EGFOA RNA: a 146-nucleotide RNA sequence from Evansella cellulosilytica. The source organism's lineage runs through Bacteria, Bacillati, Bacilli, Caryophanales and Evansella cellulosilytica.
RNA sequence: ACACACCCAGAUGCCUUUCAUAUACAUUUGAAAGGAAUUGCCCGUACUAGUCGCUGAAAGGCGAGGUGGGGGUAGGUUAUUGCGUGAUUGCAAGAGUUGUAAAGCUAGACCUGGGAACUUAAUUUAUGUGUGAAUUUAACCUACUU
Numbered sequence: 001a002c003a004c005a006c007c008c009a010g011a012u013g014c015c016u017u018u019c020a021u022a023u024a025c026a027u028u029u030g031a032a033a034g035g036a037a038u039u040g041c042c043c044g045u046a047c048u049a050g051u052c053g054c055u056g057a058a059a060g061g062c063g064a065g066g067u068g069g070g071g072g073u074a075g076g077u078u079a080u081u082g083c084g085u086g087a088u089u090g091c092a093a094g095a096g097u098u099g100u101a102a103a104g105c106u107a108g109a110c111c112u113g114g115g116a117a118c119u120u121a122a123u124u125u126a127u128g129u130g131u132g133a134a135u136u137u138a139a140c141c142u143a144c145u146u
Base pairs, nucleotide, nucleotide: 006115007114008113009112010111044110045109047108048107049106050105051064052063053062054061055060070146071145072144073143074142075141076140077139080093081092082091083090094120095119096118097117098116

By type it is a small RNA.